[Rfam]
RNA sequence: UCCAGCGGUUGUCAGCUAUCCAGGCUAGUGUGAUGCCUUGGAUGGUGUUACACUGUUGGAAGAGCAAAUGCUGCCUUUGUUAAGGUCUGGCUUCGGCUCUGUUUUGGUGUUGUGGCUUAGUACCUUUGGGCAGUAUUUUGCACCUCUGAGAGUGGAGAAACUCCUUCUAUGGAGUUGGUCCUAGUCUGGGUGCAAACAGU
Numbered sequence: 001u002c003c004a005g006c007g008g009u010u011g012u013c014a015g016c017u018a019u020c021c022a023g024g025c026u027a028g029u030g031u032g033a034u035g036c037c038u039u040g041g042a043u044g045g046u047g048u049u050a051c052a053c054u055g056u057u058g059g060a061a062g063a064g065c066a067a068a069u070g071c072u073g074c075c076u077u078u079g080u081u082a083a084g085g086u087c088u089g090g091c092u093u094c095g096g097c098u099c100u101g102u103u104u105u106g107g108u109g110u111u112g113u114g115g116c117u118u119a120g121u122a123c124c125u126u127u128g129g130g131c132a133g134u135a136u137u138u139u140g141c142a143c144c145u146c147u148g149a150g151a152g153u154g155g156a157g158a159a160a161c162u163c164c165u166u167c168u169a170u171g172g173a174g175u176u177g178g179u180c181c182u183a184g185u186c187u188g189g190g191u192g193c194a195a196a197c198a199g200u
Base pairs, nucleotide, nucleotide: 001060002059003058004057005056006055007054008053009052011051012050015046016045017044018043019042020041022038023037024036025035068136069135070134071133072132073131074130075129076128082126083125084124085123086122089117090116091115092114094112095111096110097109099107100106138195139194140193141192142191143190144189145188154181155180156179159176160175161174162173163172164171

Small nucleolar RNA SNORA74: a 200-nucleotide RNA sequence from Vicugna pacos. Rfam links the family to the GO terms RNA processing and nucleolus. On this family, see Ganot et al., Genes Dev 1997: "The family of box ACA small nucleolar RNAs is defined by an evolutionarily conserved secondary structure and ubiquitous sequence elements essential for RNA accumulation". Rfam describes the family as follows. U19 belongs to the H/ACA class of snoRNAs. snoRNAs bind a number of proteins (including dyskerin, Gar1p and Nop10p in the case of the H/ACA class) to form snoRNP complexes. Pairs were carried over by alignment from the consensus structure, which was predicted with PFOLD. The source organism's lineage runs through Eukaryota, Chordata, Sarcopterygii, Theria and Vicugna. The family's RNA type in Rfam is H/ACA-box small nucleolar RNA.